Small nucleolar RNA Z107/R87: a 106-nucleotide RNA from Macleaya cordata. For this family Rfam cites "Identification of 66 box C/D snoRNAs in Arabidopsis thaliana: extensive gene duplications generated multiple isoforms predicting new ribosomal RNA 2'-O-methylation sites" (Barneche et al., J Mol Biol, 2001). It is annotated as a C/D-box small nucleolar RNA. It scores 88 bits against the family's covariance model.

[Rfam]
RNA sequence: AAUUGCGAUGAUGACUCCGAAAAUUCAAGCUCAACAGACCGGAAUGCAGGUUUUUCUCUUCAGAGAAUACAUUUGCGUGUCGACAACCCCGCUGAACUGAGCAAUC
Numbered sequence: 001a002a003u004u005g006c007g008a009u010g011a012u013g014a015c016u017c018c019g020a021a022a023a024u025u026c027a028a029g030c031u032c033a034a035c036a037g038a039c040c041g042g043a044a045u046g047c048a049g050g051u052u053u054u055u056c057u058c059u060u061c062a063g064a065g066a067a068u069a070c071a072u073u074u075g076c077g078u079g080u081c082g083a084c085a086a087c088c089c090c091g092c093u094g095a096a097c098u099g100a101g102c103a104a105u106c
Base pairs, nucleotide, nucleotide: 002105003104004103005102006101

About this RNA: The family's consensus secondary structure was predicted with RNAfold. Rfam 15.1 lists 783 matches to the family in 221 species. The organism belongs to Macleaya, within Eukaryota.